The record is an 85-nucleotide RNA sequence from Argiope bruennichi, which matches "Selenocysteine transfer RNA" in Rfam. A reference for the family is Lowe and Eddy (1997), "tRNAscan-SE: a program for improved detection of transfer RNA genes in genomic sequence", Nucleic Acids Res.

[Rfam]
RNA sequence: GCCUUGAUGAGCAUCGGUGGUUCGGUGUGCGGGCUUCAAACCCGUAGCUGAUGACAGUCAGCGUGGUUCAAUUCCACCUUUGGGC
Numbered sequence: 001g002c003c004u005u006g007a008u009g010a011g012c013a014u015c016g017g018u019g020g021u022u023c024g025g026u027g028u029g030c031g032g033g034c035u036u037c038a039a040a041c042c043c044g045u046a047g048c049u050g051a052u053g054a055c056a057g058u059c060a061g062c063g064u065g066g067u068u069c070a071a072u073u074c075c076a077c078c079u080u081u082g083g084g085c
Base pairs, nucleotide, nucleotide: 001085002084003083004082006081007080009078012027013026014025015024016023017022028046029045030044031043032042033041048061049060050059051058052057063077064076065075066074